[Rfam]
The record is a 197-nucleotide RNA from Sorex araneus, which matches "Small nucleolar RNA SNORA74" in Rfam.
RNA sequence: CCCAGUGGUUGUCAGCUGUCUGGGCUAAUAUGCCUCGGAUGGUGUUACAGUGCUGGGAGAACAAGCACUGCCUUAUUUGGGGUGUGGCUGCAGCGCUGUUCUGGUGCUGUGGCCCAGUUCCUGUGGGCAGUGUUUUGCACCCCUGAGAGUGGAGUGGCUCCUUUUCUGGAGUUAGUCCUAGUCUGGGUGCAUACAGU
Numbered sequence: 001c002c003c004a005g006u007g008g009u010u011g012u013c014a015g016c017u018g019u020c021u022g023g024g025c026u027a028a029u030a031u032g033c034c035u036c037g038g039a040u041g042g043u044g045u046u047a048c049a050g051u052g053c054u055g056g057g058a059g060a061a062c063a064a065g066c067a068c069u070g071c072c073u074u075a076u077u078u079g080g081g082g083u084g085u086g087g088c089u090g091c092a093g094c095g096c097u098g099u100u101c102u103g104g105u106g107c108u109g110u111g112g113c114c115c116a117g118u119u120c121c122u123g124u125g126g127g128c129a130g131u132g133u134u135u136u137g138c139a140c141c142c143c144u145g146a147g148a149g150u151g152g153a154g155u156g157g158c159u160c161c162u163u164u165u166c167u168g169g170a171g172u173u174a175g176u177c178c179u180a181g182u183c184u185g186g187g188u189g190c191a192u193a194c195a196g197u
Base pairs, nucleotide, nucleotide: 001057002056003055004054005053006052007051009049011048012047015043016042017041018040019039020038022035023034024033025032065133066132067131068130069129070128071127072126073125080122081121082120086114087113088112089111091109092108093107094106095105096104097103136191137190138189139188140187141186142185151178152177153176155174156173157172158171159170160169161168
Description
Rfam's curators put it in the seed alignment. Rfam classes the family as an H/ACA-box small nucleolar RNA. Its Rfam clan is "SNORA74 clan".